[Rfam]
RNA: Small nucleolar RNA ACA64
RNA sequence: ACAGUCUGAAAAUCACUUGGGGUGGCCCCUGGUGCGAUAACUGUGCCCACAGCAGAGGGAGCAUUAAACUCAUUGCCCACGGGAAAGUGUGGGGAGUGAUCCCCAUGUUCCUAGAAUC
Numbered sequence: 001a002c003a004g005u006c007u008g009a010a011a012a013u014c015a016c017u018u019g020g021g022g023u024g025g026c027c028c029c030u031g032g033u034g035c036g037a038u039a040a041c042u043g044u045g046c047c048c049a050c051a052g053c054a055g056a057g058g059g060a061g062c063a064u065u066a067a068a069c070u071c072a073u074u075g076c077c078c079a080c081g082g083g084a085a086a087g088u089g090u091g092g093g094g095a096g097u098g099a100u101c102c103c104c105a106u107g108u109u110c111c112u113a114g115a116a117u118c
Stems, first nucleotide, its partner, number of pairs: 006043001008041001010038001014034003021027002058111001060109005070099005078091003